Glycine riboswitch aptamer: a 97-nucleotide RNA from Prodigiosinella confusarubida. The organism belongs to Prodigiosinella, within Bacteria. A search with the family's covariance model found it, with a score of 60 bits.
[Rfam]
RNA sequence: UUGAUGCCAACUGGAGAGAGAUUGCUCAGGUAAUCCACCGAAGGGGCAAGCAGCGUUGGCUGCUAAACUCUCAGGUAAACAGGACAGAGGGAGGGGC
Numbered sequence: 001u002u003g004a005u006g007c008c009a010a011c012u013g014g015a016g017a018g019a020g021a022u023u024g025c026u027c028a029g030g031u032a033a034u035c036c037a038c039c040g041a042a043g044g045g046g047c048a049a050g051c052a053g054c055g056u057u058g059g060c061u062g063c064u065a066a067a068c069u070c071u072c073a074g075g076u077a078a079a080c081a082g083g084a085c086a087g088a089g090g091g092a093g094g095g096g097c
Stems, first nucleotide, its partner, number of pairs: 007091002011087003020035004037076003040072002044070003050063005
Dot-bracket structure: ......((..(((......((((........)))).(((((..(((...(((((....)))))....))))).)))........)))..))......